This 47-nucleotide sequence from Zingiber officinale belongs to the Rfam family "Plastid-ycf3 group II-D1 intron". Plastid rpl16 is a non-coding RNA (ncRNA) recognised in plastids. It was recognised in and intronic region of a ribosome rpl16 gene. The source organism's lineage runs through Eukaryota, Viridiplantae, Embryophyta, commelinids and Zingiber.

[Rfam]
RNA sequence: AUUCCUUCUGUCAUGUAUCCUCGAUUGAUGCAGUUUCGGAUGCUUCA
Dot-bracket structure: .........(((..........)))......(((.......)))...
Numbered sequence: 001a002u003u004c005c006u007u008c009u010g011u012c013a014u015g016u017a018u019c020c021u022c023g024a025u026u027g028a029u030g031c032a033g034u035u036u037c038g039g040a041u042g043c044u045u046c047a
Stems, first nucleotide, its partner, number of pairs: 010025003032044003
It scores 60 bits against the family's covariance model.